The family of this 128-nucleotide RNA from Rattus norvegicus is "Small nucleolar RNA SNORA40". Gene Ontology terms of the family: RNA processing and nucleolus. On this family, see Ofengand and Bakin, J Mol Biol 1997: "Mapping to nucleotide resolution of pseudouridine residues in large subunit ribosomal RNAs from representative eukaryotes, prokaryotes, archaebacteria, mitochondria and chloroplasts". Rfam's curators write: The snoRNA ACA 40 belongs to the H/ACA family of snoRNAs and guides the pseudouridylation of 28S rRNA subunit at position U4565. NB This family has a high threshold value to exclude a large number of closely related sequences that do not appear to have conserved H and ACA boxes, and may be pseudogenes. The sequence is in the family's curated seed alignment.

RNA sequence: AGCACUUGUGUUUGUUUUUGUUCAGCUGUUGGACAAAGGCAGGUUGACAGGUGCAAAAAACAAAUCCUCUUUUGCAACCCAGAACUCAUUGUUCAGUAUGAGUUUUGAUACAUACAAGAAGGAAUAUA
Number, nucleotide and partner (000 for none) at each position: 001a000002g054003c053004a052005c051006u050007u049008g048009u047010g000011u000012u000013u000014g040015u039016u038017u037018u036019u035020g034021u033022u000023c000024a000025g000026c031027u000028g000029u000030u000031g026032g000033a021034c020035a019036a018037a017038g016039g015040c014041a000042g000043g000044u000045u000046g000047a009048c008049a007050g006051g005052u004053g003054c002055a000056a000057a000058a000059a000060a000061c000062a000063a000064a125065u124066c000067c122068u121069c000070u119071u118072u117073u116074g115075c000076a000077a000078c000079c000080c107081a106082g105083a104084a103085c102086u101087c100088a099089u098090u000091g000092u000093u000094c000095a000096g000097u000098a089099u088100g087101a086102g085103u084104u083105u082106u081107g080108a000109u000110a000111c000112a000113u000114a000115c074116a073117a072118g071119a070120a000121g068122g067123a000124a065125u064126a000127u000128a000